[Rfam]
RNA sequence: GGUAGCAAGUUUGAGGCCAUAGUUGAAGCAUUCAUGAUGUGGCCCUGUCAGAUUCCAAUGAAUCUGCAAAUUCUGUC
Numbered sequence: 001g002g003u004a005g006c007a008a009g010u011u012u013g014a015g016g017c018c019a020u021a022g023u024u025g026a027a028g029c030a031u032u033c034a035u036g037a038u039g040u041g042g043c044c045c046u047g048u049c050a051g052a053u054u055c056c057a058a059u060g061a062a063u064c065u066g067c068a069a070a071u072u073c074u075g076u077c
Base pairs, nucleotide, nucleotide: 013045015044016043017042018041022076023075025073026072027071028040029039030038049066050065051064052063053062054061055060